Description:
A member of the RNA family "Selenocysteine insertion sequence 1" from Geodia barretti, 66 nucleotides long. The base pairs follow the family's consensus structure, which is taken from published work. The family's RNA type in Rfam is cis-regulatory element. The match comes from Rfam's covariance-model search (36 bits).
RNA sequence: ACUGCAGCCAUGACGGGGUGUCCUUAAAGCCUGGAUCAGGACGGGGCACACCUGAGGAUCUACAGU
Numbered sequence: 001a002c003u004g005c006a007g008c009c010a011u012g013a014c015g016g017g018g019u020g021u022c023c024u025u026a027a028a029g030c031c032u033g034g035a036u037c038a039g040g041a042c043g044g045g046g047c048a049c050a051c052c053u054g055a056g057g058a059u060c061u062a063c064a065g066u
Stems, first nucleotide, its partner, number of pairs: 001066004015052002018049007030040003
Dot-bracket structure: ((((..........((.(((((((.....(((.....)))..))))))).))..........))))